[Rfam]
RNA sequence: GAGCAUUUCCUCACUUCCCUCUAACCGAGAUCACGGGGGUUACAUCUCUCAUAUCCACUAGUGAAGGGAUUAGUGGAAAUAAACGUAUCG
Numbered sequence: 001g002a003g004c005a006u007u008u009c010c011u012c013a014c015u016u017c018c019c020u021c022u023a024a025c026c027g028a029g030a031u032c033a034c035g036g037g038g039g040u041u042a043c044a045u046c047u048c049u050c051a052u053a054u055c056c057a058c059u060a061g062u063g064a065a066g067g068g069a070u071u072a073g074u075g076g077a078a079a080u081a082a083a084c085g086u087a088u089c090g
Stems, first nucleotide, its partner, number of pairs: 014039005027048005055076007

Rfam assigns this 90-nucleotide RNA from Salacisavirus pssm2 to the family "PhotoRC-II RNA". It scores 49 bits against the family's covariance model.